[Rfam]
RNA sequence: CAGUGUUACAGCUGUUUUAGAAUUUGUCUAGCAAGCUUUCUGUUUUUUUUCCAGAAAGCCCUU
Numbered sequence: 001c002a003g004u005g006u007u008a009c010a011g012c013u014g015u016u017u018u019a020g021a022a023u024u025u026g027u028c029u030a031g032c033a034a035g036c037u038u039u040c041u042g043u044u045u046u047u048u049u050u051c052c053a054g055a056a057a058g059c060c061c062u063u
Base pairs, nucleotide, nucleotide: 035059036058037057038056039055040054041053042052
Shown here is a 63-nucleotide sequence from Sapajus apella, a member of the family "U7 small nuclear RNA". The base pairs follow the family's consensus structure, which was predicted with PFOLD. The match comes from Rfam's covariance-model search (56 bits).